[Rfam]
Nucleotides: 132
Stems, first nucleotide, its partner, number of pairs: 002059005007053003012048002015046006024037003070124006082113005088107002092104003
Number, partner (000 for none) and nucleotide at each position: 001000u002059u003058c004057g005056a006055g007053a008052c009051u010000a011000g012048a013047g014000u015046c016045a017044c018043a019042u020041c021000c022000u023000u024037a025036c026035a027000u028000u029000u030000u031000c032000u033000a034000u035026u036025g037024u038000c039000u040000u041020g042019a043018u044017g045016u046015g047013c048012u049000a050000u051009a052008g053007u054000u055006u056005u057004c058003g059002a060000a061000g062000a063000g064000u065000a066000a067000c068000u069000a070124c071123u072122g073121a074120u075119u076000u077000u078000a079000u080000u081000c082113a083112c084111u085110g086109g087000c088107u089106g090000u091000a092104g093103c094102u095000c096000c097000u098000u099000u100000a101000u102094a103093g104092c105000c106089c107088a108000g109086u110085c111084a112083g113082u114000c115000a116000c117000a118000c119075a120074a121073u122072u123071a124070g125000u126000a127000a128000c129000a130000u131000u132000g
Overview
The record is a 132-nucleotide RNA sequence from Scyliorhinus torazame, which matches "Small nucleolar RNA SNORA3/SNORA45 family" in Rfam. Rfam's curators write: The members of this family belong to the H/ACA class of snoRNAs which are thought to guide the sites of modification of uridines to pseudouridines. This family includes mouse snoMBI-28 and human homologues ACA3 (SNORA3) and ACA3-2 (SNORA45). Both ACA3 and ACA3-2 share the same host gene. The family is grouped with related families in Rfam's "SNORA3 clan". Gene Ontology terms of the family: RNA processing and nucleolus. The family has 6 seed sequences and 2,080 matches in Rfam 15.1. It scores 94 bits against the family's covariance model. It is annotated as an H/ACA-box small nucleolar RNA.